[Rfam]
RNA sequence: CUCCCCGAAAUGCAUUUAGGUGCAGCGUCGCGUGCUGGGUGCCGGAGGUAGAGCACUGGAUGGCCUAGGGGGCCGACAAGCUUACCGAAGUCAACCAAACUCCGAAUGCCGGUAGGCCGAGCGCGGCAGUGAGACGGCGGGGGAUAAGCUUCGUCGUCGAGAGGGAAACAGCCCAGAUCACCGGCUAAGGCCCCUAAGCGUGCGCUAAGUGGGAAAGGAUGUGGGAUCGCCCAGACAACCAGGAGGUUGGCUUAGAAGCAGCCAUCCUUGAAAGAGUGCGUAAUAGCUCACUGGUCAAGUGGUCCUGCGCCGACAAUGUAGCGGGGCUCAAGCGCGCCGCCGAAGCCGUGGCACCGCCCCCUGUGCGGGGGUGGUGGGUAGGGGAGCGUCGUGCACUCGGGGAAGCCGCCGCGGGAGCGUGCGGUGGAGGGUGUGCGAGUGAGAAU
Number, nucleotide and partner (000 for none) at each position: 001c386002u385003c384004c383005c382006c381007g000008a000009a000010a000011u024012g023013c022014a021015u020016u000017u000018a000019g000020g015021u014022g013023c012024a011025g000026c129027g127028u126029c125030g124031c123032g122033u121034g000035c000036u120037g117038g000039g000040u114041g113042c112043c111044g110045g109046a000047g000048g000049u000050a000051g103052a101053g100054c000055a000056c000057u097058g096059g095060a000061u093062g092063g091064c090065c000066u000067a000068g086069g085070g083071g082072g081073c080074c000075g000076a000077c000078a000079a000080g073081c072082u071083u070084a000085c069086c068087g000088a000089a000090g064091u063092c062093a061094a000095c059096c058097a057098a000099a000100c053101u052102c000103c051104g000105a000106a000107u000108g000109c045110c044111g043112g042113u041114a040115g000116g000117c037118c000119g000120a036121g033122c032123g031124c030125g029126g028127c027128a000129g026130u000131g000132a000133g158134a157135c156136g155137g154138c153139g152140g151141g150142g149143g000144a000145u000146a000147a000148g000149c142150u141151u140152c139153g138154u137155c136156g135157u134158c133159g000160a000161g000162a000163g174164g173165g172166a000167a000168a000169c000170a000171g000172c165173c164174c163175a000176g000177a000178u351179c350180a349181c348182c000183g347184g346185c345186u000187a000188a000189g341190g340191c339192c000193c000194c000195u000196a000197a000198g338199c000200g337201u336202g335203c334204g333205c332206u000207a000208a000209g000210u000211g000212g000213g000214a000215a000216a000217g311218g310219a000220u000221g308222u307223g306224g305225g304226a303227u302228c301229g300230c299231c000232c000233a000234g000235a000236c000237a000238a295239c294240c293241a292242g291243g000244a268245g267246g266247u000248u000249g263250g262251c261252u000253u000254a000255g000256a000257a000258g000259c000260a000261g251262c250263c249264a000265u000266c246267c245268u244269u273270g000271a000272a000273a269274g289275a000276g000277u000278g287279c286280g000281u000282a000283a000284u000285a000286g279287c278288u000289c274290a000291c242292u241293g240294g239295u238296c000297a000298a000299g230300u229301g228302g227303u226304c225305c224306u223307g222308c221309g000310c218311c217312g000313a000314c000315a000316a000317u000318g000319u000320a000321g000322c000323g000324g000325g000326g000327c000328u000329c000330a000331a000332g205333c204334g203335c202336g201337c200338c198339g191340c190341c189342g000343a000344a000345g185346c184347c183348g181349u180350g179351g178352c376353a375354c374355c373356g372357c371358c370359c369360c368361c367362u000363g000364u000365g000366c000367g361368g360369g359370g358371g357372u356373g355374g354375u353376g352377g000378g000379u000380a000381g006382g005383g004384g003385a002386g001387c441388g000389u438390c437391g436392u435393g434394c433395a432396c431397u430398c429399g000400g000401g000402g000403a000404a000405g425406c424407c423408g422409c421410c419411g418412c417413g000414g000415g000416a000417g412418c411419g410420u000421g409422c408423g407424g406425u405426g000427g000428a000429g398430g397431g396432u395433g394434u393435g392436c391437g390438a389439g000440u000441g387442a000443g000444a000445a000446u000